[Rfam]
RNA: che1 RNA
Organism: Streptomyces sp. WM4235
RNA sequence: GGGACAGGGGGGUACUUGCCUCACCGGCAGGGCCUGUCCCCCCAGGUUGCGCGAACGCGUGGCCCAGUGGUUGUCGCUCGGGGGUGAACGCCU
Number, nucleotide and partner (000 for none) at each position: 001g040002g039003g038004a037005c036006a035007g034008g033009g000010g000011g000012g000013u000014a000015c031016u030017u029018g028019c027020c026021u000022c000023a000024c000025c000026g020027g019028c018029a017030g016031g015032g000033c008034c007035u006036g005037u004038c003039c002040c001041c000042c000043c000044a000045g064046g063047u062048u061049g060050c059051g058052c057053g000054a000055a000056c000057g052058c051059g050060u049061g048062g047063c046064c045065c000066a000067g000068u000069g000070g000071u000072u000073g000074u000075c000076g000077c000078u000079c000080g000081g000082g000083g000084g000085u000086g000087a000088a000089c000090g000091c000092c000093u000